The record is a 328-nucleotide RNA from Sus scrofa, which matches "Nuclear RNase P" in Rfam. On this family, see Brown, Nucleic Acids Res 1999: "The Ribonuclease P Database". NCBI's taxonomy places the organism under Eukaryota, Teleostomi, Euteleostomi, Eutheria, Sus.

[Rfam]
Nucleotides: 328
Stems, first nucleotide, its partner, number of pairs: 003328002005321003010274004019063001021061002032049005037043001073311002077307001083249002086246001093107005108126004127245007146230006275300005281294004
Number, partner (000 for none) and nucleotide at each position: 001000u002000g003328a004327g005321g006320g007319a008000a009000g010274c011273u012272u013271a014000u015000c016000a017000g018000u019063g020000a021061g022060g023000c024000c025000a026000u027000g028000a029000g030000c031000u032049g033048a034047g035046u036045g037043c038000a039000u040000u041000u042000a043037g044000c045036c046035a047034c048033u049032c050000u051000a052000u053000c054000c055000c056000g057000u058000g059000u060022c061021c062000c063019c064000u065000g066000g067000g068000a069000a070000g071000g072000u073311u074310u075000a076000a077307g078000a079000c080000u081000a082000g083249g084248g085000c086246c087000a088000a089000a090000a091000g092000g093107g094106g095105c096104c097103c098000u099000a100000a101000c102000a103097g104096g105095g106094u107093c108126u109125u110124c111123c112000c113000a114000g115000a116000g117000c118000u119000u120000c121000g122000a123111g124110g125109a126108g127245g128244u129243g130242a131241g132240u133239u134000c135000u136000g137000a138000g139000a140000u141000a142000a143000u144000g145000g146230g147229c148228u149227c150226u151225g152000a153000g154000c155000a156000a157000g158000g159000g160000c161000a162000g163000a164000c165000u166000g167000g168000g169000c170000a171000g172000g173000a174000g175000a176000g177000g178000c179000c180000a181000u182000g183000g184000a185000c186000c187000u188000u189000g190000c191000c192000c193000g194000u195000a196000u197000g198000g199000a200000a201000g202000a203000g204000c205000c206000c207000a208000g209000c210000a211000a212000a213000u214000g215000c216000c217000u218000c219000c220000u221000u222000a223000g224000c225151c226150a227149g228148a229147g230146c231000u232000u233000g234000g235000a236000a237000c238000a239133g240132a241131c242130u243129c244128a245127u246086g247000a248084c249083c250000a251000g252000c253000a254000c255000c256000c257000a258000a259000g260000u261000g262000a263000g264000u265000u266000c267000a268000a269000u270000g271013u272012g273011a274010g275300g276299u277298g278297a279296g280000u281294a282293c283292c284291c285000u286000g287000c288000a289000u290000g291284g292283g293282g294281u295000u296279c297278u298277c299276a300275u301000a302000a303000c304000c305000c306000a307077u308000g309000c310074a311073g312000a313000c314000u315000a316000u317000u318000c319007u320006c321005c322000c323000u324000g325000u326000u327004c328003u